Record summary: The record is an 81-nucleotide RNA sequence from Formicarius rufipectus, which matches "Small nucleolar RNA SNORD74" in Rfam. A search with the family's covariance model found it, with a score of 67 bits. The family has 22 seed sequences and 929 matches in Rfam 15.1. Pairs were carried over by alignment from the consensus structure, which was predicted with PFOLD.
[Rfam]
RNA sequence: GUGCCCGCGCAUGAUGAGAACUAUGUUGGUAGGGACAUCUGAGAGGAGGGGGAUGAAUGCCAACAUAUCUGAGCUGGGCAU
Numbered sequence: 001g002u003g004c005c006c007g008c009g010c011a012u013g014a015u016g017a018g019a020a021c022u023a024u025g026u027u028g029g030u031a032g033g034g035a036c037a038u039c040u041g042a043g044a045g046g047a048g049g050g051g052g053a054u055g056a057a058u059g060c061c062a063a064c065a066u067a068u069c070u071g072a073g074c075u076g077g078g079c080a081u
Stems, first nucleotide, its partner, number of pairs: 001081005